[Rfam]
RNA: c-di-AMP riboswitch aptamer (ydaO/yuaA leader)
Organism: Streptomyces sp. 846.5
RNA sequence: CGUACGCGGUCGCCUAAUCCUGUCUGGAACCGGGGAACCACGCACGUAGGGGUGAAUCGGCCGAACCUGGCCGUAGGGGACCUUCCUCUCCGAACCCGUCAGCUAACCCGGUCGGCGAGAUGGAAGGAAAGG
Numbered sequence: 001c002g003u004a005c006g007c008g009g010u011c012g013c014c015u016a017a018u019c020c021u022g023u024c025u026g027g028a029a030c031c032g033g034g035g036a037a038c039c040a041c042g043c044a045c046g047u048a049g050g051g052g053u054g055a056a057u058c059g060g061c062c063g064a065a066c067c068u069g070g071c072c073g074u075a076g077g078g079g080a081c082c083u084u085c086c087u088c089u090c091c092g093a094a095c096c097c098g099u100c101a102g103c104u105a106a107c108c109c110g111g112u113c114g115g116c117g118a119g120a121u122g123g124a125a126g127g128a129a130a131g132g
Stems, first nucleotide, its partner, number of pairs: 011117004018028003029112006039049001050097003058073004076091004